[Rfam]
RNA sequence: UUGGGGUGAGGUAGUAGGUUGUAUAGUUUUAGGGUUCUGCCCUGCCUGUCAGAUAACUAUACAAUCUACUGUCUUUCCUGA
Numbered sequence: 001u002u003g004g005g006g007u008g009a010g011g012u013a014g015u016a017g018g019u020u021g022u023a024u025a026g027u028u029u030u031a032g033g034g035u036u037c038u039g040c041c042c043u044g045c046c047u048g049u050c051a052g053a054u055a056a057c058u059a060u061a062c063a064a065u066c067u068a069c070u071g072u073c074u075u076u077c078c079u080g081a
Stems, first nucleotide, its partner, number of pairs: 001081006008075020032042004045052001
A member of the RNA family "let-7 microRNA precursor family" from Ceyx cyanopectus, 81 nucleotides long. Rfam links the family to the GO terms miRNA-mediated post-transcriptional gene silencing and RISC complex. It scores 75 bits against the family's covariance model. Rfam 15.1 lists 8,694 matches to the family in 797 species. The family is grouped with related families in Rfam's "let-7 microRNA precursor clan". From the family's description: This family represents the microRNAs (miRNA) let-7 and mir-98. let-7 was identified from a study of developmental timing in C. elegans, and was later shown to be part of a much larger class of non-coding RNAs termed miRNAs.